[Rfam]
RNA sequence: GGUACUUGUACUCGUUGCGGAGCAACGAUGACAAAAGA
Numbered sequence: 001g002g003u004a005c006u007u008g009u010a011c012u013c014g015u016u017g018c019g020g021a022g023c024a025a026c027g028a029u030g031a032c033a034a035a036a037g038a
Stems, first nucleotide, its partner, number of pairs: 006030001013027006

The family of this 38-nucleotide RNA from Acetoanaerobium sticklandii is "Selenocysteine insertion sequence 4". Rfam classes the family as a cis-regulatory element. The base pairs follow the family's consensus structure, which was predicted with PFOLD. Gene Ontology term of the family: selenocysteine incorporation. A search with the family's covariance model found it, with a score of 52 bits.